Rfam assigns this 278-nucleotide RNA from Nannospalax galili to the family "Mason-Pfizer monkey virus packaging signal". Pairs were carried over by alignment from the consensus structure, which was predicted with PFOLD. Taxonomically the source falls in Nannospalax (Eukaryota, Euteleostomi, Amniota, Boreoeutheria).
RNA sequence: UGGCCUUACUAUAGAAUUGUGGUGUUUCAGGAUCCAGUGUGGGAAGAAGACGGCCCCCAAGGAACGCGUUCUGCAACAAUUCUUCACUCUGGACACGCCGCGGGAACCUGCCUCGGCUACAACCAGAAGUAAGUAUGGGCGUCUGAUUAUGGGACAAGAAUUAAGCAGGCAUGAAAUUUAUGUUCGGCAAUUGCAGGAUGCCUUAUGGAUGCAAAGAGUAAAGGUUAAAAUAGAGGAUCUAUUGAGGUUCUUUGAAUUUAUUAAGGAAACCUGUCCUU
Numbered sequence: 001u002g003g004c005c006u007u008a009c010u011a012u013a014g015a016a017u018u019g020u021g022g023u024g025u026u027u028c029a030g031g032a033u034c035c036a037g038u039g040u041g042g043g044a045a046g047a048a049g050a051c052g053g054c055c056c057c058c059a060a061g062g063a064a065c066g067c068g069u070u071c072u073g074c075a076a077c078a079a080u081u082c083u084u085c086a087c088u089c090u091g092g093a094c095a096c097g098c099c100g101c102g103g104g105a106a107c108c109u110g111c112c113u114c115g116g117c118u119a120c121a122a123c124c125a126g127a128a129g130u131a132a133g134u135a136u137g138g139g140c141g142u143c144u145g146a147u148u149a150u151g152g153g154a155c156a157a158g159a160a161u162u163a164a165g166c167a168g169g170c171a172u173g174a175a176a177u178u179u180a181u182g183u184u185c186g187g188c189a190a191u192u193g194c195a196g197g198a199u200g201c202c203u204u205a206u207g208g209a210u211g212c213a214a215a216g217a218g219u220a221a222a223g224g225u226u227a228a229a230a231u232a233g234a235g236g237a238u239c240u241a242u243u244g245a246g247g248u249u250c251u252u253u254g255a256a257u258u259u260a261u262u263a264a265g266g267a268a269a270c271c272u273g274u275c276c277u278u
Stems, first nucleotide, its partner, number of pairs: 004031003011025003038047001086130003089126002099115002102112002136157001138155001142153004162205003165201003212254008222240005263278005
The match comes from Rfam's covariance-model search (124 bits).